U1 spliceosomal RNA: a 164-nucleotide RNA from Mus musculus. Its Rfam clan is "U1 clan". The family's RNA type in Rfam is spliceosomal small nuclear RNA. The source organism's lineage runs through Eukaryota, Metazoa, Boreoeutheria, Mus and Mus. The base pairs follow the family's consensus structure, which is taken from published work. A search with the family's covariance model found it, with a score of 133 bits.
[Rfam]
RNA sequence: ACACUUACCUGGCAGGAGAGAUACCAUGAUCACAAAGGUGGUUUUCCCAGUACAAGGCUUAUCCAUUGCACUCUGGAUGUGCUGACCCCUGUGAUUUCCCCAAAUUCGGGAAACUUGACUGCAUAAUUUGUGGUAGUGGGGGACUGCGUUCGCAUUCUCCCCUA
Numbered sequence: 001a002c003a004c005u006u007a008c009c010u011g012g013c014a015g016g017a018g019a020g021a022u023a024c025c026a027u028g029a030u031c032a033c034a035a036a037g038g039u040g041g042u043u044u045u046c047c048c049a050g051u052a053c054a055a056g057g058c059u060u061a062u063c064c065a066u067u068g069c070a071c072u073c074u075g076g077a078u079g080u081g082c083u084g085a086c087c088c089c090u091g092u093g094a095u096u097u098c099c100c101c102a103a104a105u106u107c108g109g110g111a112a113a114c115u116u117g118a119c120u121g122c123a124u125a126a127u128u129u130g131u132g133g134u135a136g137u138g139g140g141g142g143a144c145u146g147c148g149u150u151c152g153c154a155u156u157c158u159c160c161c162c163u164a
Stems, first nucleotide, its partner, number of pairs: 012122004016048001018046004023042005049090002056083003060079005092117003095113003099109002138163006146155001148153001